[Rfam]
Shown here is a 120-nucleotide sequence from Endozoicomonas sp. G2_1, a member of the family "TPP riboswitch aptamer (THI element)". Gene Ontology term of the family: thiamine pyrophosphate binding.

RNA sequence: UCCUGAACCAAGGGGUGUGCUUGUUUUUAGCUAAACUAAAACCAAGCACUGAGACGUAGUAACGAACCCUUAGAACCUGAACCGGGUUAUGCCGGCGUAGGAAUGGUUAAAACUCGAUGA
Numbered sequence: 001u002c003c004u005g006a007a008c009c010a011a012g013g014g015g016u017g018u019g020c021u022u023g024u025u026u027u028u029a030g031c032u033a034a035a036c037u038a039a040a041a042c043c044a045a046g047c048a049c050u051g052a053g054a055c056g057u058a059g060u061a062a063c064g065a066a067c068c069c070u071u072a073g074a075a076c077c078u079g080a081a082c083c084g085g086g087u088u089a090u091g092c093c094g095g096c097g098u099a100g101g102a103a104u105g106g107u108u109a110a111a112a113c114u115c116g117a118u119g120a
Stems, first nucleotide, its partner, number of pairs: 006108005011070004016064001017049007056063002076101004082095004
It scores 70 bits against the family's covariance model.